[Rfam]
RNA: Fluoride riboswitch aptamer (crcB RNA motif)
RNA sequence: AAUUCCUUAGGCGAUGGAGCUCGCCGUAACCGCCUUCAAUAAAUAUAAGGCUGAUGGCUCCUACUUUCCU
Numbered sequence: 001a002a003u004u005c006c007u008u009a010g011g012c013g014a015u016g017g018a019g020c021u022c023g024c025c026g027u028a029a030c031c032g033c034c035u036u037c038a039a040u041a042a043a044u045a046u047a048a049g050g051c052u053g054a055u056g057g058c059u060c061c062u063a064c065u066u067u068c069c070u
Base pairs, nucleotide, nucleotide: 010025011024012023013022016061017060018059019058020057021056032051033050034049035048
Dot-bracket structure: .........[[[[..((((((]]]]......((((............))))....)))))).........